RNA sequence: AACGCCGAGUCCUGCCUGCUGGUCACGGUCAACAACCCACAGGCAUGGAGCGGGGGACCCACAGUUCCUCGGCGCGCUCUCCGGAGUGCGCCUCGGGGUGAAGCCGCGCUUGACGCGGCCGGGCUCCUCGGCCCGAACCCGACAGCUCACCUCGCAGGCGUGGAGGAAAACUUCA
Numbered sequence: 001a002a003c004g005c006c007g008a009g010u011c012c013u014g015c016c017u018g019c020u021g022g023u024c025a026c027g028g029u030c031a032a033c034a035a036c037c038c039a040c041a042g043g044c045a046u047g048g049a050g051c052g053g054g055g056g057a058c059c060c061a062c063a064g065u066u067c068c069u070c071g072g073c074g075c076g077c078u079c080u081c082c083g084g085a086g087u088g089c090g091c092c093u094c095g096g097g098g099u100g101a102a103g104c105c106g107c108g109c110u111u112g113a114c115g116c117g118g119c120c121g122g123g124c125u126c127c128u129c130g131g132c133c134c135g136a137a138c139c140c141g142a143c144a145g146c147u148c149a150c151c152u153c154g155c156a157g158g159c160g161u162g163g164a165g166g167a168a169a170a171c172u173u174c175a
Stems, first nucleotide, its partner, number of pairs: 003160004010049003050155006060095001096140003104118004121134004

The record is a 175-nucleotide sequence from Actinoplanes octamycinicus, which matches "c-di-AMP riboswitch aptamer (ydaO/yuaA leader)" in Rfam.